[Rfam]
RNA sequence: UUUUUUAGGGAAAAUUUUGCCUUCCCACAAGGGGAGGCCCGGAAACUUCUCC
Numbered sequence: 001u002u003u004u005u006u007a008g009g010g011a012a013a014a015u016u017u018u019g020c021c022u023u024c025c026c027a028c029a030a031g032g033g034g035a036g037g038c039c040c041g042g043a044a045a046c047u048u049c050u051c052c
Stems, first nucleotide, its partner, number of pairs: 008052003012048002015042002019038007